[Rfam]
RNA sequence: UUUUUUUUUUUACGAAAGAAGCGGAGUACAGCUUACCGUGAGAAGUCAGCAGACGCCAUAGUAGUGCAAUAGUCGAUAACGUUGCCCGAAGGGC
Numbered sequence: 001u002u003u004u005u006u007u008u009u010u011u012a013c014g015a016a017a018g019a020a021g022c023g024g025a026g027u028a029c030a031g032c033u034u035a036c037c038g039u040g041a042g043a044a045g046u047c048a049g050c051a052g053a054c055g056c057c058a059u060a061g062u063a064g065u066g067c068a069a070u071a072g073u074c075g076a077u078a079a080c081g082u083u084g085c086c087c088g089a090a091g092g093g094c
Base pairs, nucleotide, nucleotide: 001026002025004023006021007020008019009018010017011016045054046053047052055094056093057092064087066085067084068083069082
The family of this 94-nucleotide sequence is "Group II catalytic intron D1-D4-1". Rfam describes the family as follows. Group II introns are found in rRNA, tRNA and mRNA of organelles in fungi, plants and protists, and also in mRNA in bacteria. The sequence is in the family's curated seed alignment.